[Rfam]
RNA sequence: UCCGGAGUGCCGGUAGCCAAGGUUGCCGGUAGAGAGACUUGUAAAUUCAGUAACCCACUGGCAGAGUAAAAUGACGUGAGGGGAUAAAGGCGUAUCUCAUGUUUCUGCUAGUUAAUUUACCCGGUUACCGGAACGUUUGUUUAAGUGCAUCCGUUCGGCUAAUUAAUAUAGCGGUUACUUUUUUG
Dot-bracket structure: ((.....(((((((((......)))))))))....))...........(((((((.((((((((..........(((((((.............)))))))...)))))))).............((.(.(((((..(((....)))....))))).).))...........)))))))......
Numbered sequence: 001u002c003c004g005g006a007g008u009g010c011c012g013g014u015a016g017c018c019a020a021g022g023u024u025g026c027c028g029g030u031a032g033a034g035a036g037a038c039u040u041g042u043a044a045a046u047u048c049a050g051u052a053a054c055c056c057a058c059u060g061g062c063a064g065a066g067u068a069a070a071a072u073g074a075c076g077u078g079a080g081g082g083g084a085u086a087a088a089g090g091c092g093u094a095u096c097u098c099a100u101g102u103u104u105c106u107g108c109u110a111g112u113u114a115a116u117u118u119a120c121c122c123g124g125u126u127a128c129c130g131g132a133a134c135g136u137u138u139g140u141u142u143a144a145g146u147g148c149a150u151c152c153g154u155u156c157g158g159c160u161a162a163u164u165a166a167u168a169u170a171g172c173g174g175u176u177a178c179u180u181u182u183u184u185g
Stems, first nucleotide, its partner, number of pairs: 001037002008031009049179007057112008075101007126161002129158001131156005138147003
Shown here is a 185-nucleotide RNA, a member of the family "RT-7 RNA". Pairs were carried over by alignment from the consensus structure, which is taken from published work. By type it is a small RNA.